The family of this 399-nucleotide RNA from Promicromonospora soli is "Bacterial RNase P class A". From the family's description: Ribonuclease P (RNase P) is a ubiquitous endoribonuclease, found in archaea, bacteria and eukarya as well as chloroplasts and mitochondria. The family's consensus secondary structure is taken from published work.
RNA sequence: CGAGUCGGUCGGACGGUCGCGUUGGGUGCCCCCGGGCACCCGCCGAGGAACGUCCGGGCUCCACAGGGCAAGGUGGUGGUUAACAGCCACCCGGGGCGACCCGCGGGACAGUGCCACAGAAAACAGACCGCCUCCGGUCCCAGGACCGGGGGUAAGGGUGAAACGGUGGUGUAAGAGACCACCAGCGCUGCCGGUGACGGUAGCGGCUAGGUAAACCCCACCUGGAGCAAGGUCAGACAGACUGUGUUUGAGGGCUGCCCGCCCGACUCUCUUCGGAGAGGCACAGUCGGGUAGACCGCUCGAGCCCUGCGGCAACGCAGGGCCUAGAUGGAUGACCGUCGCCCGCGCGGGGGUAACCCUGCGCGGGAACAGAACCCGGCGUACAGACCGGCUCGUCCG
Numbered sequence: 001c002g003a004g005u006c007g008g009u010c011g012g013a014c015g016g017u018c019g020c021g022u023u024g025g026g027u028g029c030c031c032c033c034g035g036g037c038a039c040c041c042g043c044c045g046a047g048g049a050a051c052g053u054c055c056g057g058g059c060u061c062c063a064c065a066g067g068g069c070a071a072g073g074u075g076g077u078g079g080u081u082a083a084c085a086g087c088c089a090c091c092c093g094g095g096g097c098g099a100c101c102c103g104c105g106g107g108a109c110a111g112u113g114c115c116a117c118a119g120a121a122a123a124c125a126g127a128c129c130g131c132c133u134c135c136g137g138u139c140c141c142a143g144g145a146c147c148g149g150g151g152g153u154a155a156g157g158g159u160g161a162a163a164c165g166g167u168g169g170u171g172u173a174a175g176a177g178a179c180c181a182c183c184a185g186c187g188c189u190g191c192c193g194g195u196g197a198c199g200g201u202a203g204c205g206g207c208u209a210g211g212u213a214a215a216c217c218c219c220a221c222c223u224g225g226a227g228c229a230a231g232g233u234c235a236g237a238c239a240g241a242c243u244g245u246g247u248u249u250g251a252g253g254g255c256u257g258c259c260c261g262c263c264c265g266a267c268u269c270u271c272u273u274c275g276g277a278g279a280g281g282c283a284c285a286g287u288c289g290g291g292u293a294g295a296c297c298g299c300u301c302g303a304g305c306c307c308u309g310c311g312g313c314a315a316c317g318c319a320g321g322g323c324c325u326a327g328a329u330g331g332a333u334g335a336c337c338g339u340c341g342c343c344c345g346c347g348c349g350g351g352g353g354u355a356a357c358c359c360u361g362c363g364c365g366g367g368a369a370c371a372g373a374a375c376c377c378g379g380c381g382u383a384c385a386g387a388c389c390g391g392c393u394c395g396u397c398c399g
Stems, first nucleotide, its partner, number of pairs: 001395010011384001012340007020045002023042006050382003054379005059227004067274002071223005076090005091105001092103004106218002111216002113212003128157002130153009165183006185207001186205008231297004240288006267280005304323008